[Rfam]
RNA sequence: CGGGUCGAGGGGCGCUGCGACGGACGGGUCCACGAGAUCCGGACCGCCACGCUCGACCCGACGGUCACUACUUCAAGGGCGCCUCCUGACG
Dot-bracket structure: .(((((((............(((.(................).)))......)))))))................................
Numbered sequence: 001c002g003g004g005u006c007g008a009g010g011g012g013c014g015c016u017g018c019g020a021c022g023g024a025c026g027g028g029u030c031c032a033c034g035a036g037a038u039c040c041g042g043a044c045c046g047c048c049a050c051g052c053u054c055g056a057c058c059c060g061a062c063g064g065u066c067a068c069u070a071c072u073u074c075a076a077g078g079g080c081g082c083c084u085c086c087u088g089a090c091g
Stems, first nucleotide, its partner, number of pairs: 002059007021046003025042001

The family of this 91-nucleotide RNA from Winogradskya consettensis is "SAH (S-adenosyl-L-homocysteine) riboswitch aptamer". A search with the family's covariance model found it, with a score of 38 bits. The family has 52 seed sequences and 1,354 matches in Rfam 15.1. NCBI's taxonomy places the organism under Bacteria, Actinomycetota, Actinomycetes, Micromonosporales, Winogradskya. Its family is annotated with regulation of gene expression and S-adenosylhomocysteine metabolic process in the Gene Ontology.